Background:
The family of this 155-nucleotide sequence from Oceanotoga teriensis is "Bacterial antisense RNA HPnc0260". Lineage of the source: Bacteria > Thermotogati > Thermotogota > Thermotogae > Oceanotoga. The match comes from Rfam's covariance-model search (60 bits).
[Rfam]
RNA sequence: UGAGUCGGAUUUUUUUAAUAUAAAGAAAUGUUAAUAAAACUUGACAAAAACAUUUAAAUAUUAUACAAUAAUAUGGGUGUAAAAACAAAAAACGUUGAAACAAAAAGUUUCAACGUUAUGGUGGGCUCGGAUGGACUCGAACCAUCGACCACCCG
Numbered sequence: 001u002g003a004g005u006c007g008g009a010u011u012u013u014u015u016u017a018a019u020a021u022a023a024a025g026a027a028a029u030g031u032u033a034a035u036a037a038a039a040c041u042u043g044a045c046a047a048a049a050a051c052a053u054u055u056a057a058a059u060a061u062u063a064u065a066c067a068a069u070a071a072u073a074u075g076g077g078u079g080u081a082a083a084a085a086c087a088a089a090a091a092a093c094g095u096u097g098a099a100a101c102a103a104a105a106a107g108u109u110u111c112a113a114c115g116u117u118a119u120g121g122u123g124g125g126c127u128c129g130g131a132u133g134g135a136c137u138c139g140a141a142c143c144a145u146c147g148a149c150c151a152c153c154c155g
Stems, first nucleotide, its partner, number of pairs: 025045001030040003064081003121152004128147002131145004